MIR5291 microRNA precursor family: a 65-nucleotide RNA from Trifolium medium. Rfam links the family to the GO terms RISC complex and miRNA-mediated post-transcriptional gene silencing. The family's consensus secondary structure was predicted with RNAalifold. The match comes from Rfam's covariance-model search (56 bits). The source organism's lineage runs through Eukaryota, Streptophyta, Fabales, Hologalegina and Trifolium.
[Rfam]
RNA sequence: GAUGGAUUGAAUCCAAUCCAUUAGCAAAUUGUAAUGGAUAAUAGAUGGAUUGGAUGGAUUUUAAA
Numbered sequence: 001g002a003u004g005g006a007u008u009g010a011a012u013c014c015a016a017u018c019c020a021u022u023a024g025c026a027a028a029u030u031g032u033a034a035u036g037g038a039u040a041a042u043a044g045a046u047g048g049a050u051u052g053g054a055u056g057g058a059u060u061u062u063a064a065a
Stems, first nucleotide, its partner, number of pairs: 004061005011055012026039001029036001